[Rfam]
RNA sequence: CGCGUUUUUCGCCCAGGCGGAGCUCGACCGCCGUUUGAAGUCCUGAAGGGCUUCAUUGAUCAGCAUCGACAAGCCUACGGGGUCGAGCCGCUCUGCAAGGUUCUGCAGGUCGCUCCG
Numbered sequence: 001c002g003c004g005u006u007u008u009u010c011g012c013c014c015a016g017g018c019g020g021a022g023c024u025c026g027a028c029c030g031c032c033g034u035u036u037g038a039a040g041u042c043c044u045g046a047a048g049g050g051c052u053u054c055a056u057u058g059a060u061c062a063g064c065a066u067c068g069a070c071a072a073g074c075c076u077a078c079g080g081g082g083u084c085g086a087g088c089c090g091c092u093c094u095g096c097a098a099g100g101u102u103c104u105g106c107a108g109g110u111c112g113c114u115c116c117g
Stems, first nucleotide, its partner, number of pairs: 016032005078117005089112002092109006
Shown here is a 117-nucleotide RNA from an Alcaligenaceae bacterium, a member of the family "ALIL pseudoknot".
The family's RNA type in Rfam is cis-regulatory element.
Rfam 15.1 lists 2,146 matches to the family in 1,098 species.
Pairs were carried over by alignment from the consensus structure, which is taken from published work.